[Rfam]
RNA sequence: UUGAAGUUCCAUUUACAAAUGGAUAAGACUUUUGUCUUAGUGUAUAUGAACCGUUAAAGGAAUGGAGCAACACCUAAUAUCGUGUUUUAGUUAGGUGUUGCUCCAUU
Numbered sequence: 001u002u003g004a005a006g007u008u009c010c011a012u013u014u015a016c017a018a019a020u021g022g023a024u025a026a027g028a029c030u031u032u033u034g035u036c037u038u039a040g041u042g043u044a045u046a047u048g049a050a051c052c053g054u055u056a057a058a059g060g061a062a063u064g065g066a067g068c069a070a071c072a073c074c075u076a077a078u079a080u081c082g083u084g085u086u087u088u089a090g091u092u093a094g095g096u097g098u099u100g101c102u103c104c105a106u107u
Stems, first nucleotide, its partner, number of pairs: 008023005061107013075093003083089001